[Rfam]
RNA sequence: UUAUGUUAUGUGAUGGCUUUUUAAGUUCACACAGAUGGGAAUCACUCUGAAAGAGAAUGAAGAUCAAUUUUAAAAUGAAACAGUA
Numbered sequence: 001u002u003a004u005g006u007u008a009u010g011u012g013a014u015g016g017c018u019u020u021u022u023a024a025g026u027u028c029a030c031a032c033a034g035a036u037g038g039g040a041a042u043c044a045c046u047c048u049g050a051a052a053g054a055g056a057a058u059g060a061a062g063a064u065c066a067a068u069u070u071u072a073a074a075a076u077g078a079a080a081c082a083g084u085a
Base pairs, nucleotide, nucleotide: 001085004082005081006080007079
This 85-nucleotide RNA from Aotus nancymaae belongs to the Rfam family "Small nucleolar RNA SNORD79". A search with the family's covariance model found it, with a score of 62 bits. Rfam describes the family as follows. snoRNA U79 or Z22 is found in intron 7 of the gas5 gene in humans and is also present in mice. A reference for the family is Galardi et al. (2002), "Purified box C/D snoRNPs are able to reproduce site-specific 2'-O-methylation of target RNA in vitro", Mol Cell Biol. The family is grouped with related families in Rfam's "SNORD74 clan". Rfam classes the family as a C/D-box small nucleolar RNA. Its family is annotated with nucleolus and RNA processing in the Gene Ontology.